Rfam assigns this 355-nucleotide sequence from Desulfovibrio sp. OH1186_COT-070 to the family "Bacterial RNase P class A". Pairs were carried over by alignment from the consensus structure, which is taken from published work. It is annotated as a ribozyme. A search with the family's covariance model found it, with a score of 297 bits.
RNA sequence: GGAGUCGGACAGGCCGUCGCCGCAGGCAUGCGCCUGGGGAGGAAAGUCCGGGCUCCGCAGGGCGGAACGCUGGGUAACACCCAGGGGGGGCGACCCUCGGACAGCGCCACAGAAAGCAAACCGCCCCAGUGGGGGUAAGGGUGAAACGGUGGAGUAAGAGCCCACCAGAUGCCGCGGUGACGCGGCAUGCUAGGCAUACCCCGUUCGGAGCAAGACCAAAUAGGGAAGGCGGCUGGCCCGGCCACAGCCUUCCGGGUAGGUUGCUUGAGGGUGCGGGCAACCGCACUCCUAGAGGAAUGACGGUCACAUAUGGGAAACCAUAUGACAGAACCCGGCUUAUCGUUCGACUCCCGUU
Numbered sequence: 001g002g003a004g005u006c007g008g009a010c011a012g013g014c015c016g017u018c019g020c021c022g023c024a025g026g027c028a029u030g031c032g033c034c035u036g037g038g039g040a041g042g043a044a045a046g047u048c049c050g051g052g053c054u055c056c057g058c059a060g061g062g063c064g065g066a067a068c069g070c071u072g073g074g075u076a077a078c079a080c081c082c083a084g085g086g087g088g089g090g091c092g093a094c095c096c097u098c099g100g101a102c103a104g105c106g107c108c109a110c111a112g113a114a115a116g117c118a119a120a121c122c123g124c125c126c127c128a129g130u131g132g133g134g135g136u137a138a139g140g141g142u143g144a145a146a147c148g149g150u151g152g153a154g155u156a157a158g159a160g161c162c163c164a165c166c167a168g169a170u171g172c173c174g175c176g177g178u179g180a181c182g183c184g185g186c187a188u189g190c191u192a193g194g195c196a197u198a199c200c201c202c203g204u205u206c207g208g209a210g211c212a213a214g215a216c217c218a219a220a221u222a223g224g225g226a227a228g229g230c231g232g233c234u235g236g237c238c239c240g241g242c243c244a245c246a247g248c249c250u251u252c253c254g255g256g257u258a259g260g261u262u263g264c265u266u267g268a269g270g271g272u273g274c275g276g277g278c279a280a281c282c283g284c285a286c287u288c289c290u291a292g293a294g295g296a297a298u299g300a301c302g303g304u305c306a307c308a309u310a311u312g313g314g315a316a317a318c319c320a321u322a323u324g325a326c327a328g329a330a331c332c333c334g335g336c337u338u339a340u341c342g343u344u345c346g347a348c349u350c351c352c353g354u355u
Base pairs, nucleotide, nucleotide: 001351002350003349004348005347006346007345008344009343010342011340012305013304014303015302016301017300018299020039021038023036024035025034026033027032044338045337046336048335049334050333051332052331053210054209055208056207060239061238062237063236065206066205067204068203069202070084071083072082073081074080085098086097087096088095089094099201100200104199106195107194108193121140122139123136124135125134126133127132148166149165150164151163152162168190169188170187171186172185173184174183175182176181214262215261216260217259224253225252226251227250228249229248231243232242233241234240269288270287271286272285273284274283275282276281